[Rfam]
RNA sequence: CCCACCAUUGAAAUGGUGGGCUAUUUUCGGCCGUCCCUGGCGGGACU
Numbered sequence: 001c002c003c004a005c006c007a008u009u010g011a012a013a014u015g016g017u018g019g020g021c022u023a024u025u026u027u028c029g030g031c032c033g034u035c036c037c038u039g040g041c042g043g044g045a046c047u
Base pairs, nucleotide, nucleotide: 001020002019003018004017005016006015007014008013033046034045035044036043037042

This 47-nucleotide RNA from Planctomyces sp. SH-PL14 belongs to the Rfam family "Acido-Lenti-1 RNA". The family's RNA type in Rfam is small RNA. It scores 46 bits against the family's covariance model. NCBI's taxonomy places the organism under Bacteria, Pseudomonadati, Planctomycetales, Planctomycetaceae, Planctomyces.